[Rfam]
Rfam assigns this 125-nucleotide RNA sequence from Gossypium raimondii to the family "Small nucleolar RNA SNORD14". By type it is a C/D-box small nucleolar RNA. The family has 18 seed sequences and 4,559 matches in Rfam 15.1. A reference for the family is Samarsky et al. (1996), "An essential domain in Saccharomyces cerevisiae U14 snoRNA is absent in vertebrates, but conserved in other yeasts", Nucleic Acids Res. From the family's description: U14 small nucleolar RNA (U14 snoRNA) is required for early cleavages of eukaryotic precursor rRNAs. In yeasts, this molecule possess a stem-loop region (known as the Y-domain) which is essential for function. A similar structure, but with a different consensus sequence, is found in plants, but is absent in vertebrates.
RNA sequence: GGUUUAUGAUGAUAAGUUGUAGGGCUUGUUUCUCAAAACAUUCGCAGUGGCCACCUGAGAGCUUUCGCUUUUCUCCGGGCUUGAGAGUAUGUGCUGCUUUUAUCCUUCCUUGGAUGUCUGAGACC
Numbered sequence: 001g002g003u004u005u006a007u008g009a010u011g012a013u014a015a016g017u018u019g020u021a022g023g024g025c026u027u028g029u030u031u032c033u034c035a036a037a038a039c040a041u042u043c044g045c046a047g048u049g050g051c052c053a054c055c056u057g058a059g060a061g062c063u064u065u066c067g068c069u070u071u072u073c074u075c076c077g078g079g080c081u082u083g084a085g086a087g088u089a090u091g092u093g094c095u096g097c098u099u100u101u102a103u104c105c106u107u108c109c110u111u112g113g114a115u116g117u118c119u120g121a122g123a124c125c
Base pairs, nucleotide, nucleotide: 001125002124003123004122061088062087063086064085065084066083